[Rfam]
RNA sequence: CUUUGAACUUUACAAUAAUUAUGAAUACAAUAUUAAAUCAUACUUGGUGGUGGAACUCUCGAAACUCAAACUUCGUGAACUAACCUAUACGUAUUAUUUAAAUAACUAUACAAAAAGGCUUGUC
Numbered sequence: 001c002u003u004u005g006a007a008c009u010u011u012a013c014a015a016u017a018a019u020u021a022u023g024a025a026u027a028c029a030a031u032a033u034u035a036a037a038u039c040a041u042a043c044u045u046g047g048u049g050g051u052g053g054a055a056c057u058c059u060c061g062a063a064a065c066u067c068a069a070a071c072u073u074c075g076u077g078a079a080c081u082a083a084c085c086u087a088u089a090c091g092u093a094u095u096a097u098u099u100a101a102a103u104a105a106c107u108a109u110a111c112a113a114a115a116a117g118g119c120u121u122g123u124c
Base pairs, nucleotide, nucleotide: 036098037097038096040094041093042092043091045089046088049085050084051083057079058077060075063073064072

A member of the RNA family "Bacteroidete tryptophan peptide leader RNA" from Olleya namhaensis, 124 nucleotides long.